[Rfam]
About this RNA: Rfam assigns this 77-nucleotide sequence from Escherichia coli to the family "Nucleoid-associated noncoding RNA 4 (CssrE)". Rfam links the family to the GO terms bacterial nucleoid DNA packaging, protein binding and bacterial nucleoid. Pairs were carried over by alignment from the consensus structure, which is taken from published work. Rfam's curators write: In E. coli small RNA transcribed from repeated extragenic palindromic element (REP325) called nucleoid-associated ncRNA 4 (nRNA4) collaborates HU protein in condensing the DNA. The secondary structure but not the sequence of the RNA is important in nucleoid condensation. Also identified in Shigella as CssrE. The organism belongs to Escherichia coli, within Bacteria. The match comes from Rfam's covariance-model search (84 bits).
RNA sequence: GGCCGGAUAAGGCAUUCACGCCGCAUCCGGCAAUCGAGCACAAUGCCUGAUGCGACGCUGCCGCGUCUUAUCAGGCC
Numbered sequence: 001g002g003c004c005g006g007a008u009a010a011g012g013c014a015u016u017c018a019c020g021c022c023g024c025a026u027c028c029g030g031c032a033a034u035c036g037a038g039c040a041c042a043a044u045g046c047c048u049g050a051u052g053c054g055a056c057g058c059u060g061c062c063g064c065g066u067c068u069u070a071u072c073a074g075g076c077c
Stems, first nucleotide, its partner, number of pairs: 002031007011022003045076008054067005